[Rfam]
The record is a 126-nucleotide RNA from Camellia sinensis, which matches "Small nucleolar RNA snoR111" in Rfam. Rfam links the family to the GO terms nucleolus and RNA processing.

RNA sequence: GCAAUUGAGGAACAGAACAUUUAAUCUGCUUCUUCAAACACCGACAGGAGGUACAAUAAUGAAGGCGAGAUAUCGUUUCAGUCGUCAUUUCUUCAGAUUGACGAUUCGAUUGUUGCUCGUCCACAU
Numbered sequence: 001g002c003a004a005u006u007g008a009g010g011a012a013c014a015g016a017a018c019a020u021u022u023a024a025u026c027u028g029c030u031u032c033u034u035c036a037a038a039c040a041c042c043g044a045c046a047g048g049a050g051g052u053a054c055a056a057u058a059a060u061g062a063a064g065g066c067g068a069g070a071u072a073u074c075g076u077u078u079c080a081g082u083c084g085u086c087a088u089u090u091c092u093u094c095a096g097a098u099u100g101a102c103g104a105u106u107c108g109a110u111u112g113u114u115g116c117u118c119g120u121c122c123a124c125a126u
Stems, first nucleotide, its partner, number of pairs: 006036006013028004064121001066119004072110004081105007089097002

A reference for the family is Marker et al. (2002), "Experimental RNomics: identification of 140 candidates for small non-messenger RNAs in the plant Arabidopsis thaliana", Curr Biol.